[Rfam]
RNA sequence: GAUUUAUAAAGAAGCGGCGAGAGAUCAGGCUCAAUGACCCGCUGGCAACCCUCCAAAAUUGGAGAAGGUGCCAAUUCCUGUCCCGGAAAAUAACCCCGGGGAAUAUAAAUU
Numbered sequence: 001g002a003u004u005u006a007u008a009a010a011g012a013a014g015c016g017g018c019g020a021g022a023g024a025u026c027a028g029g030c031u032c033a034a035u036g037a038c039c040c041g042c043u044g045g046c047a048a049c050c051c052u053c054c055a056a057a058a059u060u061g062g063a064g065a066a067g068g069u070g071c072c073a074a075u076u077c078c079u080g081u082c083c084c085g086g087a088a089a090a091u092a093a094c095c096c097c098g099g100g101g102a103a104u105a106u107a108a109a110u111u
Base pairs, nucleotide, nucleotide: 001111002110003109004108005107006106007105008104013043014042015041016040017039021032022031023030026080027079028078029077044072045071046070047069049068050067051064052063053062054061076103081100082099083098085096086095
The record is a 111-nucleotide RNA from Mucilaginibacter sp., which matches "SAM riboswitch aptamer (S box leader)" in Rfam. Its family is annotated with regulation of gene expression in the Gene Ontology. Taxonomically the source falls in Mucilaginibacter (Bacteria, Pseudomonadati, Sphingobacteriia, Sphingobacteriaceae). The family's consensus secondary structure is taken from published work.